Group II catalytic intron D1-D4-6: a 231-nucleotide RNA from Sporomusa sphaeroides. The literature on the family includes a 2001 paper in Trends Genet by Bonen and Vogel, "The ins and outs of group II introns". The match comes from Rfam's covariance-model search (130 bits). About the family: Group II introns are found in rRNA, tRNA and mRNA of organelles in fungi, plants and protists, and also in mRNA in bacteria. The source organism's lineage runs through Bacteria, Bacillati, Negativicutes, Selenomonadales and Sporomusa sphaeroides.
[Rfam]
RNA sequence: GAAAUCCCGUCUGGGAAGGUCUAGCCAACCACCCAGUAUCCAGCCUUGGGACUGAAGCGGUAACGCCAGGUCUAAGCGUAGGCAGGAAAGGUAGUAGGCCGAAAGCACAAGCUGAAGAUGUAGAAUCCCGAAAUCAUCAAUGGUCAAGGUCGAUGCAUGGGACGAGCAGAAGACAACACCGCAGUUAGCGAUACAGGCGAGCUAAUCGCGGCAGCCCGGGAUCGUAGGUCU
Numbered sequence: 001g002a003a004a005u006c007c008c009g010u011c012u013g014g015g016a017a018g019g020u021c022u023a024g025c026c027a028a029c030c031a032c033c034c035a036g037u038a039u040c041c042a043g044c045c046u047u048g049g050g051a052c053u054g055a056a057g058c059g060g061u062a063a064c065g066c067c068a069g070g071u072c073u074a075a076g077c078g079u080a081g082g083c084a085g086g087a088a089a090g091g092u093a094g095u096a097g098g099c100c101g102a103a104a105g106c107a108c109a110a111g112c113u114g115a116a117g118a119u120g121u122a123g124a125a126u127c128c129c130g131a132a133a134u135c136a137u138c139a140a141u142g143g144u145c146a147a148g149g150u151c152g153a154u155g156c157a158u159g160g161g162a163c164g165a166g167c168a169g170a171a172g173a174c175a176a177c178a179c180c181g182c183a184g185u186u187a188g189c190g191a192u193a194c195a196g197g198c199g200a201g202c203u204a205a206u207c208g209c210g211g212c213a214g215c216c217c218g219g220g221a222u223c224g225u226a227g228g229u230c231u
Base pairs, nucleotide, nucleotide: 011036012035013034014033015032018030019029020028022200024198025197039087040086041085043083044082045081046080047078048077049073050072051071052070053069057066058065059064122225123223125222126221127220128219129218130217143216145214148212149174150173151172154168155167156166179211180210181209182208184206185205186204187203188202189201